[Rfam]
Nucleotides: 211
Stems, first nucleotide, its partner, number of pairs: 008027003012023004048075005076090006120161007131153001165203005171196004176191001
Number, partner (000 for none) and nucleotide at each position: 001000a002000u003000a004000c005000c006000u007000u008027u009026c010025u011000c012023g013022g014021c015020c016000u017000c018000a019000u020015g021014g022013c023012c024000a025010a026009g027008a028000u029000a030000a031000a032000g033000u034000g035000u036000a037000g038000u039000a040000u041000a042000u043000g044000u045000u046000c047000u048075u049074a050073u051072c052071a053000g054000u055000c056000u057000u058000g059000a060000g061000g062000u063000u064000a065000u066000a067000a068000g069000a070000g071052u072051g073050a074049u075048a076090g077089u078088u079087u080086g081085a082000a083000c084000u085081u086080u087079g088078a089077a090076c091000a092000a093000u094000c095000a096000c097000g098000c099000g100000u101000c102000a103000u104000g105000a106000c107000u108000u109000a110000c111000u112000u113000g114000c115000a116000u117000u118000g119000g120161g121160a122159a123158a124157u125156g126155a127000u128000u129000a130000a131153c132000u133000c134000g135000c136000u137000a138000a139000u140000u141000a142000c143000c144000c145000c146000u147000a148000u149000g150000c151000u152000a153131g154000c155126u156125u157124a158123u159122u160121u161120u162000a163000u164000u165203c166202u167201u168200c169199u170000u171196a172195a173194u174193u175000g176191u177000c178000u179000c180000g181000a182000a183000u184000u185000a186000c187000c188000u189000a190000c191176g192000g193174a194173g195172u196171u197000u198000g199169a200168g201167g202166g203165g204000u205000u206000c207000a208000g209000u210000u211000u